[Rfam]
RNA sequence: GCCGAGCCACUUAACAAUGGCUUGUAACCCAAGUGGGGGCUUUAAGGUGGUUGGAGGUUGGUUCAUCGUAUCUUGUCGGAACUCUUAAGAGGACUACUUGCUUGCUGCCCAUUCCAAGAACGGAGUUGGGCCUCGCAUUCUAGACGAAAGUCCAAAGUGCGAUGCCUUUAUAUUUGAGGAAACUGCGUGAGGUUGGCCUUACAGAGCAGCGUCACCUCCUUCUCUCGUCGGUGGACGGAUAACGUGCAAGUUCUUAAGAGCUCAAUUACCCUGGUACGAAGUUCAAAACAAGAAAACCAAUUUU
Dot-bracket structure: (((((((((.(....).))))))....(((....))))))...(((.(((((.....((.(..(.(.(((((..(...((.(((((.(.((....(....(((((((.((..((((.((..((((..((((.(((((((.(.(((....))).).))))))).))))........((((.....((((....(((......)))....))))..))))...))))..))..)))).))....)).)))))).)))))))).))......)..))))).).)..)..))......))))).))).
Shown here is a 304-nucleotide RNA from Cucumis sativus, a member of the family "Plant signal recognition particle RNA". The source organism's lineage runs through Eukaryota, Viridiplantae, Gunneridae, Cucurbitales and Cucumis. By type it is a non-coding RNA gene.